The family of this 76-nucleotide RNA sequence from Propithecus coquereli is "mir-320 microRNA precursor family". Gene Ontology terms of the family: cellular response to glucose stimulus, negative regulation of gene expression and positive regulation of stem cell proliferation. Lineage of the source: Eukaryota > Eumetazoa > Bilateria > Deuterostomia > Propithecus. It scores 81 bits against the family's covariance model. On this family, see Berezikov et al., Genome Res 2006: "Many novel mammalian microRNA candidates identified by extensive cloning and RAKE analysis".
RNA sequence: GACUGUGGGGGCCUUCUCUUCCCGGUUCUUCCAGGAGUCGGGAAAAGCUGGGUUGAGAGGAAAAAAAAAAAAAAGG
Numbered sequence: 001g002a003c004u005g006u007g008g009g010g011g012c013c014u015u016c017u018c019u020u021c022c023c024g025g026u027u028c029u030u031c032c033a034g035g036a037g038u039c040g041g042g043a044a045a046a047g048c049u050g051g052g053u054u055g056a057g058a059g060g061a062a063a064a065a066a067a068a069a070a071a072a073a074a075g076g
Base pairs, nucleotide, nucleotide: 014059015058016057017056018055021052022051023050024049025048029044030043031042032041034039